[Rfam]
RNA sequence: CGAUCCCGCACGGGAGAGUCCCCACGCAGGUGGUGGGGCGCCGAAGGGGCAACACUCCCCGGAACCUCUCAGGCGCAAAGGACCGUGCUGGUCAG
Numbered sequence: 001c002g003a004u005c006c007c008g009c010a011c012g013g014g015a016g017a018g019u020c021c022c023c024a025c026g027c028a029g030g031u032g033g034u035g036g037g038g039c040g041c042c043g044a045a046g047g048g049g050c051a052a053c054a055c056u057c058c059c060c061g062g063a064a065c066c067u068c069u070c071a072g073g074c075g076c077a078a079a080g081g082a083c084c085g086u087g088c089u090g091g092u093c094a095g
Base pairs, nucleotide, nucleotide: 006090008088009087010086011085012084013083020038021037022036023035040074041073042072043070044069047068048067049066053061

About this RNA: Shown here is a 95-nucleotide RNA sequence from Nocardioides mangrovicus, a member of the family "Glycine riboswitch aptamer". Rfam's curators write: This family represents the bacterial glycine riboswitch. It scores 64 bits against the family's covariance model.